[Rfam]
RNA: Small nucleolar RNA SNORA64/SNORA10 family
Organism: Notiomystis cincta
RNA sequence: AGUCUCCCAAUCUGCGCGGUUGCACUCGUGUGCCGUAGUGUAAUUGUCGUAACUGGAGAGACAGAGAAACGUGGCUUUUGGGGGUUCGUCAGGGGGACCUUCCCGUGGUCUCCCUGCUCCUUUCAAAAUUCCACACUU
Numbered sequence: 001a002g003u004c005u006c007c008c009a010a011u012c013u014g015c016g017c018g019g020u021u022g023c024a025c026u027c028g029u030g031u032g033c034c035g036u037a038g039u040g041u042a043a044u045u046g047u048c049g050u051a052a053c054u055g056g057a058g059a060g061a062c063a064g065a066g067a068a069a070c071g072u073g074g075c076u077u078u079u080g081g082g083g084g085u086u087c088g089u090c091a092g093g094g095g096g097a098c099c100u101u102c103c104c105g106u107g108g109u110c111u112c113c114c115u116g117c118u119c120c121u122u123u124c125a126a127a128a129u130u131c132c133a134c135a136c137u138u
Stems, first nucleotide, its partner, number of pairs: 003065003008060001011057004018045008076128005082121003091115003095111005